[Rfam]
Nucleotides: 200
Base pairs, nucleotide, nucleotide: 008027009026010025012023013022014021015020049068050067051066052065053064054063070086071085072084073083074082075081119152120151121150122149123148124147132143133142135140156193157192158191159190160189161188163185164184165183166182168180
Number, partner (000 for none) and nucleotide at each position: 001000a002000u003000a004000a005000c006000u007000u008027u009026c010025u011000a012023g013022g014021c015020c016000u017000u018000u019000u020015g021014g022013c023012u024000a025010a026009g027008a028000u029000c030000c031000a032000a033000g034000c035000c036000u037000g038000g039000u040000a041000u042000c043000u044000g045000u046000u047000c048000u049068g050067a051066u052065c053064a054063g055000u056000u057000u058000a059000a060000u061000u062000u063054c064053u065052g066051a067050u068049c069000c070086g071085u072084g073083g074082u075081c076000c077000a078000u079000u080000u081075g082074g083073c084072c085071a086070c087000a088000a089000g090000a091000u092000a093000u094000u095000a096000a097000a098000u099000c100000a101000a102000u103000u104000u105000c106000u107000c108000a109000g110000g111000g112000g113000u114000a115000a116000a117000g118000u119152g120151g121150g122149g123148u124147c125000a126000u127000a128000u129000g130000g131000g132143u133142a134000g135140g136000c137000u138000u139000g140135c141000g142133u143132a144000c145000u146000c147124g148123a149122c150121c151120c152119c153000u154000c155000c156193g157192a158191g159190u160189u161188g162000c163185c164184u165183c166182u167000g168180u169000a170000u171000u172000g173000c174000a175000c176000u177000g178000c179000a180168a181000a182166a183165g184164a185163g186000c187000g188161u189160g190159g191158c192157u193156c194000a195000c196000c197000c198000c199000a200000u